The record is a 74-nucleotide RNA sequence from Loxodonta africana, which matches "Small nucleolar RNA SNORD19" in Rfam. The family is grouped with related families in Rfam's "SNORD19 clan". Rfam links the family to the GO terms RNA processing and nucleolus. Pairs were carried over by alignment from the consensus structure. It is annotated as a C/D-box small nucleolar RNA. Rfam's curators put it in the seed alignment.
[Rfam]
RNA sequence: GAGGUAUGAGGAAAAUAUGUGAACAGUCUGAUUGUCAGUGAAGACUGAUAAGAUCCAACUCUGACCUCAGAGCC
Numbered sequence: 001g002a003g004g005u006a007u008g009a010g011g012a013a014a015a016u017a018u019g020u021g022a023a024c025a026g027u028c029u030g031a032u033u034g035u036c037a038g039u040g041a042a043g044a045c046u047g048a049u050a051a052g053a054u055c056c057a058a059c060u061c062u063g064a065c066c067u068c069a070g071a072g073c074c
Stems, first nucleotide, its partner, number of pairs: 001068004